[Rfam]
RNA sequence: UCGGUACAAGAAAUACCACCGUAGACAGCAGGUGCGUUCGCGCUUAAUGAUGCCAAGCAUCGCCCGCCGAGGUAGCUGAUAGAUUAUUGCAAUCUUCCACACAUUUGUGUGCUACUGCCUCUGCGUGUCGUUACACUCAGGGCUUUUUUAUUUGCCUG
Numbered sequence: 001u002c003g004g005u006a007c008a009a010g011a012a013a014u015a016c017c018a019c020c021g022u023a024g025a026c027a028g029c030a031g032g033u034g035c036g037u038u039c040g041c042g043c044u045u046a047a048u049g050a051u052g053c054c055a056a057g058c059a060u061c062g063c064c065c066g067c068c069g070a071g072g073u074a075g076c077u078g079a080u081a082g083a084u085u086a087u088u089g090c091a092a093u094c095u096u097c098c099a100c101a102c103a104u105u106u107g108u109g110u111g112c113u114a115c116u117g118c119c120u121c122u123g124c125g126u127g128u129c130g131u132u133a134c135a136c137u138c139a140g141g142g143c144u145u146u147u148u149u150a151u152u153u154g155c156c157u158g
Base pairs, nucleotide, nucleotide: 028067029066031064032063033062034043035042036041117143118142119141120140122139123138125136126135127134
Dot-bracket structure: ...........................((.((((((....)))..................))).)).................................................((((.((.(((......))).))))))...............
Shown here is a 158-nucleotide sequence from Herpetosiphon aurantiacus, a member of the family "Ribosomal protein L10 leader". Taxonomically the source falls in Herpetosiphon aurantiacus (Bacteria, Chloroflexia, Herpetosiphonales, Herpetosiphonaceae). Rfam's curators put it in the seed alignment. Rfam classes the family as a cis-regulatory leader. Pairs were carried over by alignment from the consensus structure, which was predicted with CMfinder.